The record is a 173-nucleotide RNA sequence from Mycoplasmopsis fermentans, which matches "Lysine riboswitch aptamer" in Rfam. Lineage of the source: Bacteria > Bacillati > Mycoplasmoidales > Metamycoplasmataceae > Mycoplasmopsis fermentans. It scores 62 bits against the family's covariance model.

RNA sequence: AGACGCUAUAGAGGAGCUCUUAGUAAUAGUAUAUUAGUUUAGCAGGCAUGUGUUGAGACUAUAUAAAAAGGAUAUAAGAGCCGAACUGGUGAUUGUGGCGGCAAUUACUGGUGGUAACAAUGCAUAACAGUUUGUUACUCUUUGGACCUCAAACCAUUGGUGCUAUAGCUUUG
Numbered sequence: 001a002g003a004c005g006c007u008a009u010a011g012a013g014g015a016g017c018u019c020u021u022a023g024u025a026a027u028a029g030u031a032u033a034u035u036a037g038u039u040u041a042g043c044a045g046g047c048a049u050g051u052g053u054u055g056a057g058a059c060u061a062u063a064u065a066a067a068a069a070g071g072a073u074a075u076a077a078g079a080g081c082c083g084a085a086c087u088g089g090u091g092a093u094u095g096u097g098g099c100g101g102c103a104a105u106u107a108c109u110g111g112u113g114g115u116a117a118c119a120a121u122g123c124a125u126a127a128c129a130g131u132u133u134g135u136u137a138c139u140c141u142u143u144g145g146a147c148c149u150c151a152a153a154c155c156a157u158u159g160g161u162g163c164u165a166u167a168g169c170u171u172u173g
Base pairs, nucleotide, nucleotide: 006168007167008166009165010164011163016081017080018079019078020077021076023073024072032065033064034063035061036060037059038058039057085112086111087110088109089108090107091106092105093104094103095102096101113139114138115137116136117135118134119133120132122131123130